Shown here is a 198-nucleotide RNA, a member of the family "Cyano-2 RNA". It is annotated as a small RNA.

[Rfam]
RNA sequence: GGCAGCCUCGGUAGAGCGAUCCGAGAGCUGACAGAACACGUCUCCUGCGUGAGCGAUCGCGGGAGACACCGUUCUGUACCAUAAACCUGAAAAGAGUUAGUGCAUUUGAUGCACAGCUCUAUAUCAGUACGAGCUUGUGAAUGCAGAUACCGCAUCGCUCGGGGAGAACAGCGUUCUCCUCGCGGUUCCGCCGCCCAC
Numbered sequence: 001g002g003c004a005g006c007c008u009c010g011g012u013a014g015a016g017c018g019a020u021c022c023g024a025g026a027g028c029u030g031a032c033a034g035a036a037c038a039c040g041u042c043u044c045c046u047g048c049g050u051g052a053g054c055g056a057u058c059g060c061g062g063g064a065g066a067c068a069c070c071g072u073u074c075u076g077u078a079c080c081a082u083a084a085a086c087c088u089g090a091a092a093a094g095a096g097u098u099a100g101u102g103c104a105u106u107u108g109a110u111g112c113a114c115a116g117c118u119c120u121a122u123a124u125c126a127g128u129a130c131g132a133g134c135u136u137g138u139g140a141a142u143g144c145a146g147a148u149a150c151c152g153c154a155u156c157g158c159u160c161g162g163g164g165a166g167a168a169c170a171g172c173g174u175u176c177u178c179c180u181c182g183c184g185g186u187u188c189c190g191c192c193g194c195c196c197a198c
Stems, first nucleotide, its partner, number of pairs: 003030004007025005031077007040067010143191002146188002149186005161181008